[Rfam]
RNA sequence: GCACUUCAACCGACGGCGUCGAAGGAGCCGGGGACCCAUCAGUCCCCCGGGGUGAAUCGCCGCGCCAGUCGCACCGGCAGACGCCGGCCGCGUCGGGCGGGGUGUAGGGCGACUUCUUCCAGCCCGAACCCGUCAGCUAACCCGGUAGGCGCCGUCGGAAGAAGGA
Numbered sequence: 001g002c003a004c005u006u007c008a009a010c011c012g013a014c015g016g017c018g019u020c021g022a023a024g025g026a027g028c029c030g031g032g033g034a035c036c037c038a039u040c041a042g043u044c045c046c047c048c049g050g051g052g053u054g055a056a057u058c059g060c061c062g063c064g065c066c067a068g069u070c071g072c073a074c075c076g077g078c079a080g081a082c083g084c085c086g087g088c089c090g091c092g093u094c095g096g097g098c099g100g101g102g103u104g105u106a107g108g109g110c111g112a113c114u115u116c117u118u119c120c121a122g123c124c125c126g127a128a129c130c131c132g133u134c135a136g137c138u139a140a141c142c143c144g145g146u147a148g149g150c151g152c153c154g155u156c157g158g159a160a161g162a163a164g165g166a
Base pairs, nucleotide, nucleotide: 002151004149005148010025011024027146028145029144030143031142032141037049050131051130052129058104059103060102061101107125108124109123110122

This 166-nucleotide RNA from Actinocrinis puniceicyclus belongs to the Rfam family "c-di-AMP riboswitch aptamer (ydaO/yuaA leader)". This family represents a conserved RNA structure found upstream of the ydaO and yuaA genes in Bacillus subtilis and related genes in other bacteria.